The family of this 94-nucleotide sequence from Cryomyces minteri is "A. fumigatus snoRNA Afu_263".
It is annotated as a C/D-box small nucleolar RNA.
On this family, see Jochl et al., Nucleic Acids Res 2008: "Small ncRNA transcriptome analysis from Aspergillus fumigatus suggests a novel mechanism for regulation of protein synthesis".
The match comes from Rfam's covariance-model search (66 bits).
The pairing is the family consensus, mapped onto this sequence.
Rfam links the family to the GO terms RNA processing and nucleolus.

Nucleotides: 094
Stems, first nucleotide, its partner, number of pairs: 006020002009017002031058004041052004
Number, partner (000 for none) and nucleotide at each position: 001000u002000a003000c004000c005000a006020u007019g008000a009017u010016g011000a012000u013000a014000c015000a016010c017009a018000c019007c020006a021000a022000u023000a024000a025000g026000c027000a028000u029000a030000g031058u032057u033056c034055a035000g036000c037000u038000g039000a040000a041052g042051g043050u044049c045000u046000a047000c048000g049044g050043a051042u052041c053000u054000u055034u056033g057032a058031a059000g060000a061000a062000a063000c064000a065000c066000a067000u068000a069000c070000c071000a072000u073000c074000a075000u076000c077000u078000u079000u080000c081000g082000c083000u084000c085000c086000u087000a088000u089000c090000u091000g092000a093000u094000a